Shown here is a 375-nucleotide RNA from Streptomyces alkaliphilus, a member of the family "transfer-messenger RNA". NCBI's taxonomy places the organism under Bacteria, Bacillati, Actinomycetes, Streptomycetaceae, Streptomyces.
RNA sequence: GGGGAUGAUCGGUUUCGACAGCGGCUGUCGAAGCAGGGGAAGCGAGCCGAGGAAGCACGGCGAUGAUCUCGUUAACCACGCGCCGUGAAAAAAAUAAUCGCCAACCAGAAGCGCGAUUCCUUCUCGCUCGCUGCCUGACGCAGCGAGCGUGAAGUGUCAGUCCGGGAGCGUUCCCGUCCCGGGUCCUGGCAUCAGCUGGGGAACUCCACCUUCGGCCCCGGUCACGGGGGUCGAUAGGGACAUCAAACAGUGACUGAGCCCGUCGGAGACUUGUCCGCGUGAUCUCCGGGGCCGAGAAAAUCGAAGCGGACUGCGCUCGGAGAAGCCCUUCUUCCGCACCGUUGGACGCGGGUUCGAUUCCCGCCAUCUCCACUC
Numbered sequence: 001g002g003g004g005a006u007g008a009u010c011g012g013u014u015u016c017g018a019c020a021g022c023g024g025c026u027g028u029c030g031a032a033g034c035a036g037g038g039g040a041a042g043c044g045a046g047c048c049g050a051g052g053a054a055g056c057a058c059g060g061c062g063a064u065g066a067u068c069u070c071g072u073u074a075a076c077c078a079c080g081c082g083c084c085g086u087g088a089a090a091a092a093a094a095u096a097a098u099c100g101c102c103a104a105c106c107a108g109a110a111g112c113g114c115g116a117u118u119c120c121u122u123c124u125c126g127c128u129c130g131c132u133g134c135c136u137g138a139c140g141c142a143g144c145g146a147g148c149g150u151g152a153a154g155u156g157u158c159a160g161u162c163c164g165g166g167a168g169c170g171u172u173c174c175c176g177u178c179c180c181g182g183g184u185c186c187u188g189g190c191a192u193c194a195g196c197u198g199g200g201g202a203a204c205u206c207c208a209c210c211u212u213c214g215g216c217c218c219c220g221g222u223c224a225c226g227g228g229g230g231u232c233g234a235u236a237g238g239g240a241c242a243u244c245a246a247a248c249a250g251u252g253a254c255u256g257a258g259c260c261c262g263u264c265g266g267a268g269a270c271u272u273g274u275c276c277g278c279g280u281g282a283u284c285u286c287c288g289g290g291g292c293c294g295a296g297a298a299a300a301u302c303g304a305a306g307c308g309g310a311c312u313g314c315g316c317u318c319g320g321a322g323a324a325g326c327c328c329u330u331c332u333u334c335c336g337c338a339c340c341g342u343u344g345g346a347c348g349c350g351g352g353u354u355c356g357a358u359u360c361c362c363g364c365c366a367u368c369u370c371c372a373c374u375c
Base pairs, nucleotide, nucleotide: 001371002370003369004368005367006366007365019344020343021342022341023340024339030334031333032332033331035329036328037327038326043319044318045317046316047315048071049070050069051068052067056087057086058085059084060083061082062081126148127147128146129145130144131143132142133141134140155191156190157189158188159187160186162182163181164180165179166178167177170204171203172202173201174200175199209237212234213233214232215231216230220255221254222253223252224251225250258292259291260290261289264288265287266286268284269283273311274310275309276308280304348364349363350362351361352360

Bacterial tmRNA, also known as 10Sa RNA or SsrA, is named for its dual tRNA and mRNA-like properties. Rfam classes the family as a non-coding RNA gene.